[Rfam]
RNA sequence: AGCUUUGCGCAGUGGCAGUAUCGUAGCCAAUGAGGUUUAUCCGAGGCGCGAUUAUUGCUAAUUGAGAACUGCGUUGAGCAGAGAAGGGAAAGCCCUCUCUCUGCUGUAUGGAAACUGAUUUC
Numbered sequence: 001a002g003c004u005u006u007g008c009g010c011a012g013u014g015g016c017a018g019u020a021u022c023g024u025a026g027c028c029a030a031u032g033a034g035g036u037u038u039a040u041c042c043g044a045g046g047c048g049c050g051a052u053u054a055u056u057g058c059u060a061a062u063u064g065a066g067a068a069c070u071g072c073g074u075u076g077a078g079c080a081g082a083g084a085a086g087g088g089a090a091a092g093c094c095c096u097c098u099c100u101c102u103g104c105u106g107u108a109u110g111g112a113a114a115c116u117g118a119u120u121u122c
Stems, first nucleotide, its partner, number of pairs: 020052005026047003034042002078104007086097003
The family of this 122-nucleotide RNA sequence from Neogale vison is "U4 spliceosomal RNA".
Rfam classes the family as a spliceosomal small nuclear RNA.
Lineage of the source: Eukaryota > Euteleostomi > Mammalia > Carnivora > Neogale.
It scores 74 bits against the family's covariance model.
On this family, see Zwieb, Nucleic Acids Res 1997: "The uRNA database".